[Rfam]
RNA: Makes More Granules Regulator RNA (mmgR)
RNA sequence: CUCGUAUGCCCUCCUUGGGCGUUUCCUCCCUAGACUUGGGCCGCACCUCGGUGCGGCCUUUUUUCUUGGGCGGG
Numbered sequence: 001c002u003c004g005u006a007u008g009c010c011c012u013c014c015u016u017g018g019g020c021g022u023u024u025c026c027u028c029c030c031u032a033g034a035c036u037u038g039g040g041c042c043g044c045a046c047c048u049c050g051g052u053g054c055g056g057c058c059u060u061u062u063u064u065c066u067u068g069g070g071c072g073g074g
Base pairs, nucleotide, nucleotide: 008020009019010018011017038059039058040057041056042055043054044053045052046051